About this RNA: The record is a 137-nucleotide RNA sequence from Semnornis frantzii, which matches "Small nucleolar RNA SNORA17" in Rfam. On this family, see Ofengand and Bakin, J Mol Biol 1997: "Mapping to nucleotide resolution of pseudouridine residues in large subunit ribosomal RNAs from representative eukaryotes, prokaryotes, archaebacteria, mitochondria and chloroplasts". Rfam's curators write: snoRNA ACA 17 belongs to the H/ACA family of snoRNAs and is predicted to guide pseudouridylation of the 28S rRNA at positions U4659 and U4598. It shares the same host gene together with ACA43.
[Rfam]
RNA sequence: CAUGCCCCAUCGUGUUGCAGACGUGGCUGUUGUGCCAUGGUUUGUGUCAUUAGGUGGCAGAAAGGAAAAGGCUGUGUCAUUCUUGGCUGAUGCUCUGGAGCCUGUGAGCACUUGGGAAUGAUGAGCAGCCUGACAAU
Numbered sequence: 001c002a003u004g005c006c007c008c009a010u011c012g013u014g015u016u017g018c019a020g021a022c023g024u025g026g027c028u029g030u031u032g033u034g035c036c037a038u039g040g041u042u043u044g045u046g047u048c049a050u051u052a053g054g055u056g057g058c059a060g061a062a063a064g065g066a067a068a069a070g071g072c073u074g075u076g077u078c079a080u081u082c083u084u085g086g087c088u089g090a091u092g093c094u095c096u097g098g099a100g101c102c103u104g105u106g107a108g109c110a111c112u113u114g115g116g117a118a119u120g121a122u123g124a125g126c127a128g129c130c131u132g133a134c135a136a137u
Stems, first nucleotide, its partner, number of pairs: 003059004007054002009050001012047002017045004022039006069131007083121003087115004091110005